[Rfam]
RNA sequence: GGAUGUGAGGGCGAUCUGGCUGCGACAUCUGUCACCCCAUUGAUCGCCAGGGUUGAUUCGGCUGAUCUGGCUGGCUAGGCGGGUGUCCCCUUCCUCCCUCACCGCUCCAUGUGCGUCCCUCCCGAAGCUGCGCGCUCGGUUGAAGAGGACGACCAUCCCCGAUAGAGGAGGACCGGUCUUCGGUCAAGGGUAUACGAGUAGCUGCGCUCCCCUGCUAGAACCUCCAAACAAGCUCUCAAGAAAAGAUGGGGGAAAAAAUAGGGAGUAUCAGCAUAGAAUUUCUGAGAUGUAAAAAAUAAAACAUUUUCAGCUGGGCACAGUGGCUCACGGCUGUAAU
Numbered sequence: 001g002g003a004u005g006u007g008a009g010g011g012c013g014a015u016c017u018g019g020c021u022g023c024g025a026c027a028u029c030u031g032u033c034a035c036c037c038c039a040u041u042g043a044u045c046g047c048c049a050g051g052g053u054u055g056a057u058u059c060g061g062c063u064g065a066u067c068u069g070g071c072u073g074g075c076u077a078g079g080c081g082g083g084u085g086u087c088c089c090c091u092u093c094c095u096c097c098c099u100c101a102c103c104g105c106u107c108c109a110u111g112u113g114c115g116u117c118c119c120u121c122c123c124g125a126a127g128c129u130g131c132g133c134g135c136u137c138g139g140u141u142g143a144a145g146a147g148g149a150c151g152a153c154c155a156u157c158c159c160c161g162a163u164a165g166a167g168g169a170g171g172a173c174c175g176g177u178c179u180u181c182g183g184u185c186a187a188g189g190g191u192a193u194a195c196g197a198g199u200a201g202c203u204g205c206g207c208u209c210c211c212c213u214g215c216u217a218g219a220a221c222c223u224c225c226a227a228a229c230a231a232g233c234u235c236u237c238a239a240g241a242a243a244a245g246a247u248g249g250g251g252g253a254a255a256a257a258a259u260a261g262g263g264a265g266u267a268u269c270a271g272c273a274u275a276g277a278a279u280u281u282c283u284g285a286g287a288u289g290u291a292a293a294a295a296a297u298a299a300a301a302c303a304u305u306u307u308c309a310g311c312u313g314g315g316c317a318c319a320g321u322g323g324c325u326c327a328c329g330g331c332u333g334u335a336a337u
Base pairs, nucleotide, nucleotide: 001108002107003106005102006101007100008099009098010097011096013093014092018090019089024087025086026085027084028083029082030081031080032079033078035074036073037070038069039068042067043066044065045064046062047061048060116171117170118168119167120166121165122139123138124137125136127135128134140162141161142160147158148157149156201272202271203270208265210263211262212261213260214259223253224252225251229249231247308333309332310331311330312327313326314325315324316323